[Rfam]
RNA: small nucleolar RNA snoR143
RNA sequence: CAGCAUUAUCGGGUUUGUUAAGUGUGAAGGCUUUUUAUCCUUUCACUUGUGUAUACCAUGAUGCACACAUUGAAUAUCAGUUGAUUUAUCAAUUGGUAGCGGCCAGACAACCGUAGUGAUGUGGUAUCCACAGAUAACAGGUUUAAUUCAGUCCCGAUUUGUCUACUAACUCCAUCUCACAUUU
Numbered sequence: 001c002a003g004c005a006u007u008a009u010c011g012g013g014u015u016u017g018u019u020a021a022g023u024g025u026g027a028a029g030g031c032u033u034u035u036u037a038u039c040c041u042u043u044c045a046c047u048u049g050u051g052u053a054u055a056c057c058a059u060g061a062u063g064c065a066c067a068c069a070u071u072g073a074a075u076a077u078c079a080g081u082u083g084a085u086u087u088a089u090c091a092a093u094u095g096g097u098a099g100c101g102g103c104c105a106g107a108c109a110a111c112c113g114u115a116g117u118g119a120u121g122u123g124g125u126a127u128c129c130a131c132a133g134a135u136a137a138c139a140g141g142u143u144u145a146a147u148u149c150a151g152u153c154c155c156g157a158u159u160u161g162u163c164u165a166c167u168a169a170c171u172c173c174a175u176c177u178c179a180c181a182u183u184u
Base pairs, nucleotide, nucleotide: 003064004063005062006061012057013056014055016053017052019049020048021047022046023045024044026043027042028041029040030039116178118176119175120174121173124172126171138161139160140159141158142157143156